[Rfam]
RNA sequence: AAGACUAUACUUCACAGGAUCAUUUCUGUAGUCAGUCUUCACUUACUUUCGCACAAAUUGAAAGCCAAACACACCCGCGUUGAUGAGUUAAAUCGUCCUAUUCGGCAGCGUGAGGUUUUGCCCAGCGCCCUUUCUGGUGCGGCACUUCGGUGUCCGUGUCGUUCGGGGCGCAGAGCUUCGAUGAUCGCUCGGUAAAACGGAUAGAACGAAUUCUGAGUGGU
Number, nucleotide and partner (000 for none) at each position: 001a039002a038003g037004a036005c035006u000007a000008u000009a032010c031011u030012u000013c000014a000015c028016a027017g026018g025019a024020u000021c000022a000023u000024u019025u018026c017027u016028g015029u000030a011031g010032u009033c000034a000035g005036u004037c003038u002039u001040c000041a000042c000043u000044u000045a000046c000047u000048u062049u061050c060051g059052c000053a000054c000055a000056a000057a000058u000059u051060g050061a049062a048063a000064g000065c000066c000067a000068a000069a000070c000071a000072c000073a000074c000075c220076c219077g218078c217079g000080u000081u000082g000083a000084u000085g000086a000087g000088u000089u000090a000091a000092a000093u209094c208095g207096u206097c000098c204099u203100a202101u201102u200103c199104g198105g000106c000107a000108g188109c187110g186111u000112g000113a000114g000115g000116u000117u000118u000119u000120g176121c175122c000123c173124a000125g171126c170127g169128c168129c000130c000131u000132u000133u000134c000135u000136g000137g000138u000139g000140c000141g155142g154143c152144a151145c000146u000147u000148c000149g000150g000151u144152g143153u000154c142155c141156g000157u000158g000159u000160c000161g000162u000163u000164c000165g000166g000167g000168g128169c127170g126171c125172a000173g123174a000175g121176c120177u000178u000179c000180g000181a000182u000183g000184a000185u000186c110187g109188c108189u000190c000191g000192g000193u000194a000195a000196a000197a000198c104199g103200g102201a101202u100203a099204g098205a000206a096207c095208g094209a093210a000211u000212u000213c000214u000215g000216a000217g078218u077219g076220g075221u000
The family of this 221-nucleotide RNA from Drosophila pseudoobscura is "Small nucleolar RNA U3". The organism belongs to Drosophila pseudoobscura, within Eukaryota. A reference for the family is Zwieb (1997), "The uRNA database", Nucleic Acids Res. From the family's description: Small nucleolar RNAs (snoRNAs) are involved in the processing and modification of rRNA in the nucleolus. There are two main classes of snoRNAs: the box C/D class, and the box H/ACA class. U3 snoRNA is a member of the box C/D class. The family's consensus secondary structure is taken from published work. The sequence is in the family's curated seed alignment. Its family is annotated with RNA processing and nucleolus in the Gene Ontology.